The record is a 250-nucleotide RNA sequence from Schaedlerella arabinosiphila, which matches "Lysine riboswitch aptamer" in Rfam. Rfam describes the family as follows. Riboswitches are metabolite binding domains within certain messenger RNAs that serve as precision sensors for their corresponding targets. NCBI's taxonomy places the organism under Bacteria, Bacillota, Lachnospirales, Lachnospiraceae, Schaedlerella.

RNA sequence: AGACUUGAUAGAGGUGCGGGAUUCAUCAGUACCAGGAAGGACAGCGAAAAAAUGAGCAGGCUUUUAUAUCGGCCCAGUGUGCUGUCCGUGCAGUAAAGUCCAGGGAGACAAGGCAGCCCGACAGGCGCUGCCGCUGCAAAAUGGGAAAGGGGAGACCGCCGAAGGAGACGUGUCUGUCCCUGUGAGACGGCUUCUGGGCCGCGGCAGAAUAUGCUGCGGACUGUCACAUCAGUGGAGCGCUAUCACGGGA
Numbered sequence: 001a002g003a004c005u006u007g008a009u010a011g012a013g014g015u016g017c018g019g020g021a022u023u024c025a026u027c028a029g030u031a032c033c034a035g036g037a038a039g040g041a042c043a044g045c046g047a048a049a050a051a052a053u054g055a056g057c058a059g060g061c062u063u064u065u066a067u068a069u070c071g072g073c074c075c076a077g078u079g080u081g082c083u084g085u086c087c088g089u090g091c092a093g094u095a096a097a098g099u100c101c102a103g104g105g106a107g108a109c110a111a112g113g114c115a116g117c118c119c120g121a122c123a124g125g126c127g128c129u130g131c132c133g134c135u136g137c138a139a140a141a142u143g144g145g146a147a148a149g150g151g152g153a154g155a156c157c158g159c160c161g162a163a164g165g166a167g168a169c170g171u172g173u174c175u176g177u178c179c180c181u182g183u184g185a186g187a188c189g190g191c192u193u194c195u196g197g198g199c200c201g202c203g204g205c206a207g208a209a210u211a212u213g214c215u216g217c218g219g220a221c222u223g224u225c226a227c228a229u230c231a232g233u234g235g236a237g238c239g240c241u242a243u244c245a246c247g248g249g250a
Stems, first nucleotide, its partner, number of pairs: 006245006016159004022153003032144003163195005169189003173185002196222002199219008224235004